[Rfam]
RNA sequence: AGAGAGUGCUUCUAGGGUUCCGAUUUCAGUGAUCGAUAGGUUAAGUCAGCCGAUUGAUUUUACUUGAAAUGGCUGGUCCGAGAGAAGCAAGCCGAUCGAUGUCUUCGAGUUCUGAUGACAUCAUGGGUCACACGGCGGGAUAAAAGCCCGGGAGGU
Numbered sequence: 001a002g003a004g005a006g007u008g009c010u011u012c013u014a015g016g017g018u019u020c021c022g023a024u025u026u027c028a029g030u031g032a033u034c035g036a037u038a039g040g041u042u043a044a045g046u047c048a049g050c051c052g053a054u055u056g057a058u059u060u061u062a063c064u065u066g067a068a069a070u071g072g073c074u075g076g077u078c079c080g081a082g083a084g085a086a087g088c089a090a091g092c093c094g095a096u097c098g099a100u101g102u103c104u105u106c107g108a109g110u111u112c113u114g115a116u117g118a119c120a121u122c123a124u125g126g127g128u129c130a131c132a133c134g135g136c137g138g139g140a141u142a143a144a145a146g147c148c149c150g151g152g153a154g155g156u
Stems, first nucleotide, its partner, number of pairs: 007089006015079002020076002022073001023070006091128003095124002131151001133154001137149003
Dot-bracket structure: ......((((((..((...(((((((((....................................))))))..).)).))....)))))).(((.((..........................)).)))..(.[...(((.......))).)..]..

Background:
Guanidine-I riboswitch aptamer: a 156-nucleotide sequence from Leptolyngbyaceae cyanobacterium LF-bin-369. It scores 74 bits against the family's covariance model.